[Rfam]
RNA sequence: UAGAAUUUGUUCUGCAAGCCUCGUAUAACGCUAGUAAUAAGGUCUGGCGGUUUCUACCAAGCAACCAUAAAUUGCUUGACUACGGGGAAAGUGGACGACAUC
Numbered sequence: 001u002a003g004a005a006u007u008u009g010u011u012c013u014g015c016a017a018g019c020c021u022c023g024u025a026u027a028a029c030g031c032u033a034g035u036a037a038u039a040a041g042g043u044c045u046g047g048c049g050g051u052u053u054c055u056a057c058c059a060a061g062c063a064a065c066c067a068u069a070a071a072u073u074g075c076u077u078g079a080c081u082a083c084g085g086g087g088a089a090a091g092u093g094g095a096c097g098a099c100a101u102c
Stems, first nucleotide, its partner, number of pairs: 019087007029049006058078007
RNA: Purine riboswitch aptamer